The record is a 104-nucleotide sequence, which matches "RT-5 RNA" in Rfam. Rfam classes the family as a small RNA.
[Rfam]
RNA sequence: UUGCGCCUGUGGCGGGUCCGGCACGAUUCUUAAUAGGCUUCGCAGGCAGCCGGGUCGUGUACGAUCUUGUACAUCCAAGAAUUGUCUUGGAUUUAAUGAUUUCU
Numbered sequence: 001u002u003g004c005g006c007c008u009g010u011g012g013c014g015g016g017u018c019c020g021g022c023a024c025g026a027u028u029c030u031u032a033a034u035a036g037g038c039u040u041c042g043c044a045g046g047c048a049g050c051c052g053g054g055u056c057g058u059g060u061a062c063g064a065u066c067u068u069g070u071a072c073a074u075c076c077a078a079g080a081a082u083u084g085u086c087u088u089g090g091a092u093u094u095a096a097u098g099a100u101u102u103c104u
Base pairs, nucleotide, nucleotide: 005047006046007045008044009043010042011041014067015066017064018063021060022059023058024057025056026055028054029053036051037050038049039048075090076089077088078087079086080085